[Rfam]
RNA sequence: GGGGCCGUAGCUCAGUUGGGAGAGCGCAGCAAUCGCACUGCUGAGGUCAGGGGUUUCGAUUCCCCUCGGCUCCA
Numbered sequence: 001g002g003g004g005c006c007g008u009a010g011c012u013c014a015g016u017u018g019g020g021a022g023a024g025c026g027c028a029g030c031a032a033u034c035g036c037a038c039u040g041c042u043g044a045g046g047u048c049a050g051g052g053g054u055u056u057c058g059a060u061u062c063c064c065c066u067c068g069g070c071u072c073c074a
Stems, first nucleotide, its partner, number of pairs: 001073007010025004027043005049066005

Rfam assigns this 74-nucleotide RNA from Pararhodospirillum photometricum to the family "tRNA". On this family, see Lowe and Eddy, Nucleic Acids Res 1997: "tRNAscan-SE: a program for improved detection of transfer RNA genes in genomic sequence". The base pairs follow the family's consensus structure, which is taken from published work. The match comes from Rfam's covariance-model search (56 bits). Its family is annotated with triplet codon-amino acid adaptor activity in the Gene Ontology.